[Rfam]
RNA sequence: GGUGGUUUUCAGGUGAUGCACACCAGAAAUCGGGCUCCCUCUUCUCUGGUUCUGGGUGCAUCACCCAAGACCCGCA
Numbered sequence: 001g002g003u004g005g006u007u008u009u010c011a012g013g014u015g016a017u018g019c020a021c022a023c024c025a026g027a028a029a030u031c032g033g034g035c036u037c038c039c040u041c042u043u044c045u046c047u048g049g050u051u052c053u054g055g056g057u058g059c060a061u062c063a064c065c066c067a068a069g070a071c072c073c074g075c076a
Base pairs, nucleotide, nucleotide: 002075003074005072007070008069009068012065013064014063015062016061017060019058020057021056023054025053026052027051029050030049031048032047033046034045